[Rfam]
RNA sequence: ACACAGGAAGGGAGGUGGUCCGAGAAAUUGAUAGCUUAUUGGACAUGUGAGGUGGCUGCCCGCUAGCUGCACCAGGCGAGGAAUCACCUGCGCGCGCUGGCGAAUUCCCCGCAGUCACCCGGCCCCCGAGCCUCCGGUUCGUCCAACCUGGAACUACGGCUCGGGGGCUGCCCAUU
Numbered sequence: 001a002c003a004c005a006g007g008a009a010g011g012g013a014g015g016u017g018g019u020c021c022g023a024g025a026a027a028u029u030g031a032u033a034g035c036u037u038a039u040u041g042g043a044c045a046u047g048u049g050a051g052g053u054g055g056c057u058g059c060c061c062g063c064u065a066g067c068u069g070c071a072c073c074a075g076g077c078g079a080g081g082a083a084u085c086a087c088c089u090g091c092g093c094g095c096g097c098u099g100g101c102g103a104a105u106u107c108c109c110c111g112c113a114g115u116c117a118c119c120c121g122g123c124c125c126c127c128g129a130g131c132c133u134c135c136g137g138u139u140c141g142u143c144c145a146a147c148c149u150g151g152a153a154c155u156a157c158g159g160c161u162c163g164g165g166g167g168c169u170g171c172c173c174a175u176u
Stems, first nucleotide, its partner, number of pairs: 014060006061102007069095002072092001074089003120170013133151002136148003